[Rfam]
Nucleotides: 073
Base pairs, nucleotide, nucleotide: 002072003071004070005069
Number, partner (000 for none) and nucleotide at each position: 001000u002072u003071u004070u005069g006000a007000a008000u009000g010000a011000u012000g013000a014000c015000u016000u017000c018000a019000g020000u021000u022000g023000u024000g025000g026000g027000a028000u029000a030000c031000c032000c033000c034000u035000u036000c037000a038000c039000u040000c041000u042000u043000u044000u045000u046000g047000u048000g049000a050000g051000u052000g053000a054000a055000a056000c057000a058000u059000a060000a061000c062000a063000g064000u065000c066000u067000g068000a069005c070004a071003a072002a073000u
This 73-nucleotide RNA sequence from Otolemur garnettii belongs to the Rfam family "Small nucleolar RNA SNORD101". The match comes from Rfam's covariance-model search (86 bits). Lineage of the source: Eukaryota > Euteleostomi > Sarcopterygii > Galagidae > Otolemur. Its family is annotated with nucleolus and RNA processing in the Gene Ontology. The family's RNA type in Rfam is C/D-box small nucleolar RNA. The base pairs follow the family's consensus structure, which was predicted with PFOLD. The family is grouped with related families in Rfam's "SNORD101 clan".